[Rfam]
RNA sequence: UCCUAUAAGGGUUGGGAGUAUUACCAACCCUUAUAGGGAACAUGUAGCAAGUAUCA
Numbered sequence: 001u002c003c004u005a006u007a008a009g010g011g012u013u014g015g016g017a018g019u020a021u022u023a024c025c026a027a028c029c030c031u032u033a034u035a036g037g038g039a040a041c042a043u044g045u046a047g048c049a050a051g052u053a054u055c056a
Stems, first nucleotide, its partner, number of pairs: 001038015
ssNA-helicase RNA: a 56-nucleotide RNA sequence.
The sequence is in the family's curated seed alignment.